[Rfam]
RNA sequence: ACCUUAUCAAGAGCGACUGAGGGAACAGGCCCUGUGACGUCCGGCAACCUGCUGUAACAGCAAGGUGCCAAAUCCUGCGGGUAACACCGAAAGAUAAGCU
Numbered sequence: 001a002c003c004u005u006a007u008c009a010a011g012a013g014c015g016a017c018u019g020a021g022g023g024a025a026c027a028g029g030c031c032c033u034g035u036g037a038c039g040u041c042c043g044g045c046a047a048c049c050u051g052c053u054g055u056a057a058c059a060g061c062a063a064g065g066u067g068c069c070a071a072a073u074c075c076u077g078c079g080g081g082u083a084a085c086a087c088c089g090a091a092a093g094a095u096a097a098g099c100u
Base pairs, nucleotide, nucleotide: 001100003098004097005096006095007094008093013042015041016040017039021032022031023030026077027076028075029074043069044068045067046066048065049064050062051061052060053059073092078089079088080087